[Rfam]
The record is a 99-nucleotide sequence from Clostridium sp. CAG:448, which matches "ZMP/ZTP riboswitch aptamer (pfl RNA motif)" in Rfam. Pairs were carried over by alignment from the consensus structure, which is taken from published work.
RNA sequence: GAGGUUCUUUGUGACUGACGGAACUGCAGAGCACUGCACGGGAGCAAAGAAUAAUACAGGAAAGAGCUGCUCUUUCCGCCGACCGUCUGGGCACAGUUA
Numbered sequence: 001g002a003g004g005u006u007c008u009u010u011g012u013g014a015c016u017g018a019c020g021g022a023a024c025u026g027c028a029g030a031g032c033a034c035u036g037c038a039c040g041g042g043a044g045c046a047a048a049g050a051a052u053a054a055u056a057c058a059g060g061a062a063a064g065a066g067c068u069g070c071u072c073u074u075u076c077c078g079c080c081g082a083c084c085g086u087c088u089g090g091g092c093a094c095a096g097u098u099a
Stems, first nucleotide, its partner, number of pairs: 004052009015041002017087005026037004078092003

Gene Ontology terms of the family: regulation of purine nucleotide biosynthetic process and one-carbon metabolic process.